Shown here is a 68-nucleotide sequence from Flavobacterium sp., a member of the family "Flavo-1 RNA". The base pairs follow the family's consensus structure, which is taken from published work.

RNA sequence: CCCUAGCCCCGAUUGCAGCCGAUAUCCUUUUUUGCAAAAAAAGAUAAAGGCGGAAAGCGGGAAUAGCU
Numbered sequence: 001c002c003c004u005a006g007c008c009c010c011g012a013u014u015g016c017a018g019c020c021g022a023u024a025u026c027c028u029u030u031u032u033u034g035c036a037a038a039a040a041a042a043g044a045u046a047a048a049g050g051c052g053g054a055a056a057g058c059g060g061g062a063a064u065a066g067c068u
Stems, first nucleotide, its partner, number of pairs: 009060003013056002018051002023046004029041005
It scores 56 bits against the family's covariance model. By type it is a small RNA. Lineage of the source: Bacteria > Flavobacteriia > Flavobacteriales > Flavobacteriaceae > Flavobacterium.